[Rfam]
The record is a 116-nucleotide RNA from Plantactinospora soyae, which matches "SAM riboswitch aptamer (S box leader)" in Rfam.

RNA sequence: ACCUCAUCCAGAGGGGCUGAGGGAUACGGCCCGAUGACGCCCCGGCAACCACUCCACCGCGGAGCAGGUGCCAAAUCCGUCCCCGCCGCGCCGUGCGGUCCCGGGAAAGAUGAGAG
Numbered sequence: 001a002c003c004u005c006a007u008c009c010a011g012a013g014g015g016g017c018u019g020a021g022g023g024a025u026a027c028g029g030c031c032c033g034a035u036g037a038c039g040c041c042c043c044g045g046c047a048a049c050c051a052c053u054c055c056a057c058c059g060c061g062g063a064g065c066a067g068g069u070g071c072c073a074a075a076u077c078c079g080u081c082c083c084c085g086c087c088g089c090g091c092c093g094u095g096c097g098g099u100c101c102c103g104g105g106a107a108a109g110a111u112g113a114g115a116g
Base pairs, nucleotide, nucleotide: 003114004113005112006111007110008109013043014042015041016040017039021032022031023030026080027079028078029077044072045071046070047069049068050067052064053063054062076108081105082104083103

From the family's description: The SAM riboswitch is found upstream of a number of genes which code for proteins involved in methionine or cysteine biosynthesis in Gram-positive bacteria.